[Rfam]
RNA sequence: GCGAGGUGACGAUAAAAAUUCAAUAGUCAAUUGCUGAUAACAAUGAUGUUAUUGUGAAUCUCGACAGGUUCCGAUCGC
Numbered sequence: 001g002c003g004a005g006g007u008g009a010c011g012a013u014a015a016a017a018a019u020u021c022a023a024u025a026g027u028c029a030a031u032u033g034c035u036g037a038u039a040a041c042a043a044u045g046a047u048g049u050u051a052u053u054g055u056g057a058a059u060c061u062c063g064a065c066a067g068g069u070u071c072c073g074a075u076c077g078c
Stems, first nucleotide, its partner, number of pairs: 001078004
RNA: Small nucleolar RNA snoR14
Organism: Cannabis sativa